[Rfam]
RNA sequence: GACAGUUGCAAAGAAUUCCCGAUGGGAUCCAAGGCGGCGCGUCUUGGAGAUGCCUUGUAACCGAAAUUAAAGGGGGAAACAAUUAAG
Numbered sequence: 001g002a003c004a005g006u007u008g009c010a011a012a013g014a015a016u017u018c019c020c021g022a023u024g025g026g027a028u029c030c031a032a033g034g035c036g037g038c039g040c041g042u043c044u045u046g047g048a049g050a051u052g053c054c055u056u057g058u059a060a061c062c063g064a065a066a067u068u069a070a071a072g073g074g075g076g077a078a079a080c081a082a083u084u085a086a087g
Stems, first nucleotide, its partner, number of pairs: 016078005024055003028048007061073002
Shown here is an 87-nucleotide RNA sequence from Lacticaseibacillus camelliae, a member of the family "SAM-III riboswitch aptamer (SMK box)". A search with the family's covariance model found it, with a score of 68 bits. Taxonomically the source falls in Lacticaseibacillus camelliae (Bacteria, Bacillota, Bacilli, Lactobacillaceae). A reference for the family is Fuchs et al. (2007), "S-adenosylmethionine directly inhibits binding of 30S ribosomal subunits to the SMK box translational riboswitch RNA", Proc Natl Acad Sci U S A.